L31-Actinobacteria ribosomal protein leader: a 50-nucleotide sequence from Mycolicibacterium mageritense.
The source organism's lineage runs through Bacteria, Actinomycetes, Mycobacteriales, Mycobacterium (subgen. Mycolicibacterium) and Mycolicibacterium mageritense.
By type it is a cis-regulatory leader.
[Rfam]
RNA sequence: UCGGUCCCGGUUCACGUCCCCGCGCAUUAGAUCGGUGGGCGACCCGGGCC
Number, nucleotide and partner (000 for none) at each position: 001u000002c000003g050004g049005u048006c000007c047008c046009g045010g044011u000012u000013c000014a000015c041016g040017u039018c038019c037020c035021c034022g033023c000024g000025c000026a000027u000028u000029a000030g000031a000032u000033c022034g021035g020036u000037g019038g018039g017040c016041g015042a000043c000044c010045c009046g008047g007048g005049c004050c003